RNA sequence: CGGGCUGUCAUUGGGGAGUAGCCUCCGUCCUUCUGCGACGGCCCUGCGUCAACAGACUUGGAACCCCGGUUCCAUGGCGCAGGCGGACCUUUCGGUUUGGCGAGACCUUUGGCUGCGCAGCCUCCGUUUCAGGCCGGGGAAGCUGUGCGGUCAUUGCGUGCUCGAACCGGCCGGAGUUCCC
Numbered sequence: 001c002g003g004g005c006u007g008u009c010a011u012u013g014g015g016g017a018g019u020a021g022c023c024u025c026c027g028u029c030c031u032u033c034u035g036c037g038a039c040g041g042c043c044c045u046g047c048g049u050c051a052a053c054a055g056a057c058u059u060g061g062a063a064c065c066c067c068g069g070u071u072c073c074a075u076g077g078c079g080c081a082g083g084c085g086g087a088c089c090u091u092u093c094g095g096u097u098u099g100g101c102g103a104g105a106c107c108u109u110u111g112g113c114u115g116c117g118c119a120g121c122c123u124c125c126g127u128u129u130c131a132g133g134c135c136g137g138g139g140a141a142g143c144u145g146u147g148c149g150g151u152c153a154u155u156g157c158g159u160g161c162u163c164g165a166a167c168c169g170g171c172c173g174g175a176g177u178u179c180c181c
Base pairs, nucleotide, nucleotide: 026040027039028038043083044082045081046080047079048078049077050076051075059074060073061072062071063070085180086179087178089176090175091174
RNA: Manganese Mn2+ riboswitch aptamer (yybP-ykoY)
Organism: Ramlibacter agri